[Rfam]
RNA sequence: AUUUAAUAUUAUAAUUUGUUAGACUUAUGUCUUUAUUGGUCAUGUAAGUGGGGCAAAGCAAAUAUCCUUUCAAAACUCAGGCAAACUGGUGUUUGUCUUGAAUCUUGUCAAAGGAAACAAAU
Numbered sequence: 001a002u003u004u005a006a007u008a009u010u011a012u013a014a015u016u017u018g019u020u021a022g023a024c025u026u027a028u029g030u031c032u033u034u035a036u037u038g039g040u041c042a043u044g045u046a047a048g049u050g051g052g053g054c055a056a057a058g059c060a061a062a063u064a065u066c067c068u069u070u071c072a073a074a075a076c077u078c079a080g081g082c083a084a085a086c087u088g089g090u091g092u093u094u095g096u097c098u099u100g101a102a103u104c105u106u107g108u109c110a111a112a113g114g115a116a117a118c119a120a121a122u
Stems, first nucleotide, its partner, number of pairs: 028055005036047003065115006078100001079098008

Rfam assigns this 122-nucleotide RNA sequence from Otolemur garnettii to the family "Small nucleolar RNA SNORA27". Rfam describes the family as follows. ACA27 is a member of the H/ACA class of snoRNA that guide the sites of modification of uridines to pseudouridines. Pairs were carried over by alignment from the consensus structure. The family is grouped with related families in Rfam's "SNORA27 clan". By type it is an H/ACA-box small nucleolar RNA. Taxonomically the source falls in Otolemur (Eukaryota, Deuterostomia, Theria, Eutheria). The match comes from Rfam's covariance-model search (112 bits).